[Rfam]
A member of the RNA family "Makes More Granules Regulator RNA (mmgR)" from Microvirga tunisiensis, 75 nucleotides long. Taxonomically the source falls in Microvirga (Bacteria, Pseudomonadati, Pseudomonadota, Methylobacteriaceae). It scores 64 bits against the family's covariance model.
RNA sequence: CCUGCUCGCCCUUCUUGGGCGUUUCCUCCCUAAACUUCGGGCCACUCGCAAGGGUGGCCUUUUUUCUUAGGUGUU
Numbered sequence: 001c002c003u004g005c006u007c008g009c010c011c012u013u014c015u016u017g018g019g020c021g022u023u024u025c026c027u028c029c030c031u032a033a034a035c036u037u038c039g040g041g042c043c044a045c046u047c048g049c050a051a052g053g054g055u056g057g058c059c060u061u062u063u064u065u066c067u068u069a070g071g072u073g074u075u
Base pairs, nucleotide, nucleotide: 008020009019010018011017039060040059041058042057043056044055045054046053047052
About the family: SuhB later renamed mmgR (makes more granules regulator) was a putative non-coding RNA found multiple times in the Agrobacterium tumefaciens genome and related alpha-proteobacteria. Its family is annotated with protein binding, response to nitrogen compound and DNA-templated transcription, termination in the Gene Ontology.